[Rfam]
RNA sequence: GUUGGGUACGGAGAUAAGGUGCCCCUCGGGGUGAUGGGAAGGAUGAUUGGUGCUGCCUGUGCCAUCACGGGGGUGCUGACCCUCGCCAUACCAGUCCCUAUUAUAACGGGCCAC
Number, nucleotide and partner (000 for none) at each position: 001g114002u113003u000004g111005g000006g000007u108008a000009c000010g000011g104012a000013g102014a101015u100016a099017a000018g097019g096020u000021g095022c094023c000024c000025c000026u000027c000028g000029g000030g000031g000032u000033g000034a000035u000036g000037g077038g076039a000040a074041g000042g000043a000044u000045g000046a000047u000048u000049g063050g062051u061052g000053c000054u000055g000056c000057c000058u000059g000060u000061g051062c050063c049064a000065u000066c000067a000068c000069g000070g000071g000072g000073g000074u040075g000076c038077u037078g000079a000080c000081c000082c000083u000084c000085g000086c000087c000088a000089u000090a000091c000092c000093a000094g022095u021096c019097c018098c000099u016100a015101u014102u013103a000104u011105a000106a000107c000108g007109g000110g000111c004112c000113a002114c001
Shown here is a 114-nucleotide RNA from Helobdella robusta, a member of the family "Potassium channel RNA editing signal".
Rfam links the family to the GO term adenosine to inosine editing.
On this family, see Bhalla et al., Nat Struct Mol Biol 2004: "Control of human potassium channel inactivation by editing of a small mRNA hairpin".
The family's RNA type in Rfam is cis-regulatory element.
Pairs were carried over by alignment from the consensus structure, which is taken from published work.
The family has 85 seed sequences and 14,095 matches in Rfam 15.1.